The family of this 261-nucleotide part of an RNA from Oxynema aestuarii is "Bacterial large subunit ribosomal RNA". The family's consensus secondary structure is taken from published work. The literature on the family includes a 2001 paper in Science by Yusupov et al., "Crystal structure of the ribosome at 5.5 A resolution". Lineage of the source: Bacteria > Bacillati > Cyanobacteriota > Oxynema > Oxynema aestuarii.

[Rfam]
RNA sequence: AGAGCAUUGAGAGGCGCCCUCCUUAGUACGAGAGGACCGGGAGGGACACACCGCUGGUGUACCUGUUAUCGUGCCAACGGUAGACGCAGGGUAGCCAUGUGUGGCGUGGAUAACCGCUGAAAGCAUCUAAGUGGGAAGCCCACCUCAAGAUGAGUGCUCUGGUGGAGUUAAUCCAGUAAGGUCCCGGGCAGAUUACCCGUUGAUAGGCGUUAGGUGGAAGUCCUGCAAGGGAUGUAGCCGAGACGUACUAACCGACCGAGC
Numbered sequence: 001a002g003a004g005c006a007u008u009g010a011g012a013g014g015c016g017c018c019c020u021c022c023u024u025a026g027u028a029c030g031a032g033a034g035g036a037c038c039g040g041g042a043g044g045g046a047c048a049c050a051c052c053g054c055u056g057g058u059g060u061a062c063c064u065g066u067u068a069u070c071g072u073g074c075c076a077a078c079g080g081u082a083g084a085c086g087c088a089g090g091g092u093a094g095c096c097a098u099g100u101g102u103g104g105c106g107u108g109g110a111u112a113a114c115c116g117c118u119g120a121a122a123g124c125a126u127c128u129a130a131g132u133g134g135g136a137a138g139c140c141c142a143c144c145u146c147a148a149g150a151u152g153a154g155u156g157c158u159c160u161g162g163u164g165g166a167g168u169u170a171a172u173c174c175a176g177u178a179a180g181g182u183c184c185c186g187g188g189c190a191g192a193u194u195a196c197c198c199g200u201u202g203a204u205a206g207g208c209g210u211u212a213g214g215u216g217g218a219a220g221u222c223c224u225g226c227a228a229g230g231g232a233u234g235u236a237g238c239c240g241a242g243a244c245g246u247a248c249u250a251a252c253c254g255a256c257c258g259a260g261c
Stems, first nucleotide, its partner, number of pairs: 001160008011146004017045007047103005055097003062090005067082006108140002114134005163175003177259001180257004185199004204250003207246005213239002220233005